[Rfam]
RNA sequence: AAACCGAAUAUUAUCUUGCUUCAUAUAUGUGUAGGAUAAGGCUACAUGUUUCUACCAACAGCCGUAAACUGUUGACUAUGAAGGAAGGCUUUUGCUUU
Numbered sequence: 001a002a003a004c005c006g007a008a009u010a011u012u013a014u015c016u017u018g019c020u021u022c023a024u025a026u027a028u029g030u031g032u033a034g035g036a037u038a039a040g041g042c043u044a045c046a047u048g049u050u051u052c053u054a055c056c057a058a059c060a061g062c063c064g065u066a067a068a069c070u071g072u073u074g075a076c077u078a079u080g081a082a083g084g085a086a087g088g089c090u091u092u093u094g095c096u097u098u
Stems, first nucleotide, its partner, number of pairs: 019083007029047006056074006
RNA: Purine riboswitch aptamer
Organism: Halobacteroides halobius